The family of this 87-nucleotide sequence from Brassica carinata is "Small nucleolar RNA Z122". Pairs were carried over by alignment from the consensus structure, which was predicted with PFOLD. It is annotated as a C/D-box small nucleolar RNA. For this family Rfam cites "The high diversity of snoRNAs in plants: identification and comparative study of 120 snoRNA genes from Oryza sativa" (Chen et al., Nucleic Acids Res, 2003). It scores 62 bits against the family's covariance model.

RNA sequence: UUUGGGAAAUGAUGACAAAAAUACGGAAUCUCUUAGGCUUAUUGCUCUGCAGAUAAUAAUGUAUUUGCACGUCAGUCUGAUCCCGUU
Numbered sequence: 001u002u003u004g005g006g007a008a009a010u011g012a013u014g015a016c017a018a019a020a021a022u023a024c025g026g027a028a029u030c031u032c033u034u035a036g037g038c039u040u041a042u043u044g045c046u047c048u049g050c051a052g053a054u055a056a057u058a059a060u061g062u063a064u065u066u067g068c069a070c071g072u073c074a075g076u077c078u079g080a081u082c083c084c085g086u087u
Stems, first nucleotide, its partner, number of pairs: 003085005